Description
Shown here is a 102-nucleotide RNA from Pseudoneobacillus rhizosphaerae, a member of the family "Purine riboswitch aptamer". The base pairs follow the family's consensus structure, which is taken from published work.
RNA sequence: AUUAAAUAUGUCGAUUUACGUCGUAUAAUGUUGGGAAUAUGGCCCAAAAGUUUCUACCGAGCUACCGUAAAUAGCUUGACUACGAGGUAAUUGUUUAAAUCU
Numbered sequence: 001a002u003u004a005a006a007u008a009u010g011u012c013g014a015u016u017u018a019c020g021u022c023g024u025a026u027a028a029u030g031u032u033g034g035g036a037a038u039a040u041g042g043c044c045c046a047a048a049a050g051u052u053u054c055u056a057c058c059g060a061g062c063u064a065c066c067g068u069a070a071a072u073a074g075c076u077u078g079a080c081u082a083c084g085a086g087g088u089a090a091u092u093g094u095u096u097a098a099a100u101c102u
Base pairs, nucleotide, nucleotide: 018088019087021085022084023083024082025081029049031047032046033045034044035043058078059077060076061075062074063073064072